A member of the RNA family "Ascomycota telomerase RNA" from Verticillium dahliae, 165 nucleotides of a longer RNA. For this family Rfam cites "The common ancestral core of vertebrate and fungal telomerase RNAs" (Qi et al., Nucleic Acids Res, 2013).

[Rfam]
RNA sequence: AUUCGUGCGGUCUUCUUCUGGAGAACGCAAUAUUCCCACUGUCUACCUCGUGGACAGCUUUGGACGAUAGCGCGGUUUUUGAGAAUGUCUUUUGUCCGCGCGCAAUGCCCUCCACCGCCUCGUCUUCGACCUGUCACGGAGAGGAAACAAAAACGAGUCCUUGUU
Numbered sequence: 001a002u003u004c005g006u007g008c009g010g011u012c013u014u015c016u017u018c019u020g021g022a023g024a025a026c027g028c029a030a031u032a033u034u035c036c037c038a039c040u041g042u043c044u045a046c047c048u049c050g051u052g053g054a055c056a057g058c059u060u061u062g063g064a065c066g067a068u069a070g071c072g073c074g075g076u077u078u079u080u081g082a083g084a085a086u087g088u089c090u091u092u093u094g095u096c097c098g099c100g101c102g103c104a105a106u107g108c109c110c111u112c113c114a115c116c117g118c119c120u121c122g123u124c125u126u127c128g129a130c131c132u133g134u135c136a137c138g139g140a141g142a143g144g145a146a147a148c149a150a151a152a153a154c155g156a157g158u159c160c161u162u163g164u165u
Stems, first nucleotide, its partner, number of pairs: 006029004013022003034067002036063003039057008085158002087154002090152006108144002110141004119133001122130003
Dot-bracket structure: .....((((...(((....)))...))))....(((((((((((((...))))))))...)))..)).................((((.((((((............((((((.....(..(((...)))..)....)))).))..))))))))..)).......